[Rfam]
RNA sequence: AUUAAAUAAAGACCUCCUAACUUUAUUUAAUGAAAUCCUAAAACUUUUUUUUAUCAUAAUCUCCUAAUGAAGUCACCUAAUCAGGUGGCUUUUUG
Numbered sequence: 001a002u003u004a005a006a007u008a009a010a011g012a013c014c015u016c017c018u019a020a021c022u023u024u025a026u027u028u029a030a031u032g033a034a035a036u037c038c039u040a041a042a043a044c045u046u047u048u049u050u051u052u053a054u055c056a057u058a059a060u061c062u063c064c065u066a067a068u069g070a071a072g073u074c075a076c077c078u079a080a081u082c083a084g085g086u087g088g089c090u091u092u093u094u095g
Stems, first nucleotide, its partner, number of pairs: 001031011069092009
The family of this 95-nucleotide sequence from Streptococcus pseudopneumoniae is "Cia-dependent small RNA csRNA1". Rfam's curators put it in the seed alignment. The literature on the family includes a 2007 paper in Mol Microbiol by Halfmann et al., "Identification of the genes directly controlled by the response regulator CiaR in Streptococcus pneumoniae: five out of 15 promoters drive expression of small non-coding RNAs". The base pairs follow the family's consensus structure.